[Rfam]
The record is a 121-nucleotide sequence from Winogradskyella arenosi, which matches "Bacteroidete tryptophan peptide leader RNA" in Rfam.
By type it is a cis-regulatory leader.
NCBI's taxonomy places the organism under Bacteria, Bacteroidota, Flavobacteriales, Flavobacteriaceae, Winogradskyella.
Rfam links the family to the GO terms S-adenosylmethionine metabolic process and regulation of gene expression.

RNA sequence: UUUCUAUCUUUGAUGCAUAAAUGAAAACAAAUACAACUCAUACUUGGUGGUGGAAUUUCUCAAACUUACGUUCGUGAAGCACCCUUGUUAUGUAUAAUUUAUAUAGAAAAAAAGGCUUGUC
Numbered sequence: 001u002u003u004c005u006a007u008c009u010u011u012g013a014u015g016c017a018u019a020a021a022u023g024a025a026a027a028c029a030a031a032u033a034c035a036a037c038u039c040a041u042a043c044u045u046g047g048u049g050g051u052g053g054a055a056u057u058u059c060u061c062a063a064a065c066u067u068a069c070g071u072u073c074g075u076g077a078a079g080c081a082c083c084c085u086u087g088u089u090a091u092g093u094a095u096a097a098u099u100u101a102u103a104u105a106g107a108a109a110a111a112a113a114g115g116c117u118u119g120u121c
Stems, first nucleotide, its partner, number of pairs: 036099001038097001040095004045090003049085002052082001056079002061074001063072003
Dot-bracket structure: ...................................(.(.((((.(((.((.(...((...(.(((....))).)...))..).))..))).)))).).)......................
A search with the family's covariance model found it, with a score of 67 bits.